[Rfam]
Shown here is a 355-nucleotide sequence from Shewanella sp. MR-4, a member of the family "transfer-messenger RNA".
For this family Rfam cites "Phylogenetic analysis of tmRNA secondary structure" (Williams and Bartel, RNA, 1996).
Lineage of the source: Bacteria > Pseudomonadota > Alteromonadales > Shewanellaceae > Shewanella.
Bacterial tmRNA, also known as 10Sa RNA or SsrA, is named for its dual tRNA and mRNA-like properties. Its role is to liberate the mRNA from a stalled ribosome. To accomplish this part of the tmRNA is used as a reading frame that ends in a translation stop signal. The broken mRNA is replaced in the ribosome by the tmRNA and translation of the tmRNA leads to addition of a proteolysis tag to the incomplete protein enabling recognition by a protease.

RNA sequence: GGGGGCGAUUCUGGAUUCGACAGGAUUCACGAAACCCUGGGAGCAUGCCGAGGGGCGGUUGGCCUCGUUAAAAGCCGCAAAGUUAUAGUUGCAAACGACGAUAACUACGCUCUAGCCGCUUAAUGCCGCUAGCCAUCUACCACACGUUUCGCACAUGGGCAGUGGAUUUGAUGGUCAUCUCACAUCGUGCUAGCGAGGGAACCCUGUCCGGGGGUGAACCGCGAAACAGUACCGGACUCACCGUGUGAGAUCCUGUCUUUCGGAGUUCAAACGGUUAAACAAUAGAAAGACUAAGCAUGUAGCGCCUUGGAUGUAGGUUUUCUGGACGCGGGUUCAAGUCCCGCCGCCUCCACCA
Numbered sequence: 001g002g003g004g005g006c007g008a009u010u011c012u013g014g015a016u017u018c019g020a021c022a023g024g025a026u027u028c029a030c031g032a033a034a035c036c037c038u039g040g041g042a043g044c045a046u047g048c049c050g051a052g053g054g055g056c057g058g059u060u061g062g063c064c065u066c067g068u069u070a071a072a073a074g075c076c077g078c079a080a081a082g083u084u085a086u087a088g089u090u091g092c093a094a095a096c097g098a099c100g101a102u103a104a105c106u107a108c109g110c111u112c113u114a115g116c117c118g119c120u121u122a123a124u125g126c127c128g129c130u131a132g133c134c135a136u137c138u139a140c141c142a143c144a145c146g147u148u149u150c151g152c153a154c155a156u157g158g159g160c161a162g163u164g165g166a167u168u169u170g171a172u173g174g175u176c177a178u179c180u181c182a183c184a185u186c187g188u189g190c191u192a193g194c195g196a197g198g199g200a201a202c203c204c205u206g207u208c209c210g211g212g213g214g215u216g217a218a219c220c221g222c223g224a225a226a227c228a229g230u231a232c233c234g235g236a237c238u239c240a241c242c243g244u245g246u247g248a249g250a251u252c253c254u255g256u257c258u259u260u261c262g263g264a265g266u267u268c269a270a271a272c273g274g275u276u277a278a279a280c281a282a283u284a285g286a287a288a289g290a291c292u293a294a295g296c297a298u299g300u301a302g303c304g305c306c307u308u309g310g311a312u313g314u315a316g317g318u319u320u321u322c323u324g325g326a327c328g329c330g331g332g333u334u335c336a337a338g339u340c341c342c343g344c345c346g347c348c349u350c351c352a353c354c355a
Base pairs, nucleotide, nucleotide: 001351002350003349004348005347006346007345021324022323023322024321025320028317034312036310037309039307040306041305044299045298046297047296048295049067050066051065052064053063055078056077057076058075059074060073112132113131114130115129116128118126119125133174134173135172136171137170140165141164142163143162146160148159151190152189153188154187155185156184193222194221195220206237207236208235209234210233240275241274242273243272244271246269247268248267249266251264252263253262255291256290257289258288259287260286261285328344329343330342331341332340